[Rfam]
RNA sequence: UUCUUAUCCAGAGAGACGGAGGGAUUUGGCCCUACGAAGUCUCAGCAACCGGCCUACAUGGCACCGGUGCUAAUUCCAAUAGGUUUUUAACCUAGAAGAUAAGAA
Numbered sequence: 001u002u003c004u005u006a007u008c009c010a011g012a013g014a015g016a017c018g019g020a021g022g023g024a025u026u027u028g029g030c031c032c033u034a035c036g037a038a039g040u041c042u043c044a045g046c047a048a049c050c051g052g053c054c055u056a057c058a059u060g061g062c063a064c065c066g067g068u069g070c071u072a073a074u075u076c077c078a079a080u081a082g083g084u085u086u087u088u089a090a091c092c093u094a095g096a097a098g099a100u101a102a103g104a105a
Stems, first nucleotide, its partner, number of pairs: 001105008013043005021032003026079004044071004049067002052062003075097001080094006